[Rfam]
The family of this 91-nucleotide RNA sequence from Helopsaltes ochotensis is "Small nucleolar SNORD12/SNORD106". The family's consensus secondary structure was predicted with RNAalifold. It is annotated as a C/D-box small nucleolar RNA. A search with the family's covariance model found it, with a score of 84 bits. NCBI's taxonomy places the organism under Eukaryota, Metazoa, Archosauria, Neoaves, Helopsaltes.
RNA sequence: GCUGGUGUAAGUGAUGACUGAAUUUUUUCCCCAUCAGAGCGACAGUGUUGAUUUCUUGUUGUUCAAGCCAGAUUGUGUCUGAUGCACCAGC
Numbered sequence: 001g002c003u004g005g006u007g008u009a010a011g012u013g014a015u016g017a018c019u020g021a022a023u024u025u026u027u028u029c030c031c032c033a034u035c036a037g038a039g040c041g042a043c044a045g046u047g048u049u050g051a052u053u054u055c056u057u058g059u060u061g062u063u064c065a066a067g068c069c070a071g072a073u074u075g076u077g078u079c080u081g082a083u084g085c086a087c088c089a090g091c
Stems, first nucleotide, its partner, number of pairs: 001091009